[Rfam]
RNA sequence: CGCCGGGGACGACCCCGGUGAUCCGUGACCACGGCGGGACGGCCCGC
Numbered sequence: 001c002g003c004c005g006g007g008g009a010c011g012a013c014c015c016c017g018g019u020g021a022u023c024c025g026u027g028a029c030c031a032c033g034g035c036g037g038g039a040c041g042g043c044c045c046g047c
Base pairs, nucleotide, nucleotide: 001020002019003018004017005016006015007014008013034047035046036045037044038043
The family of this 47-nucleotide sequence from Alloalcanivorax marinus is "Guanidine-II riboswitch aptamer (mini-ykkC)". NCBI's taxonomy places the organism under Bacteria, Pseudomonadati, Pseudomonadota, Gammaproteobacteria, Alloalcanivorax. Rfam 15.1 lists 1,589 matches to the family in 1,229 species. Pairs were carried over by alignment from the consensus structure, which is taken from published work. It scores 46 bits against the family's covariance model. A reference for the family is Weinberg et al. (2007), "Identification of 22 candidate structured RNAs in bacteria using the CMfinder comparative genomics pipeline", Nucleic Acids Res.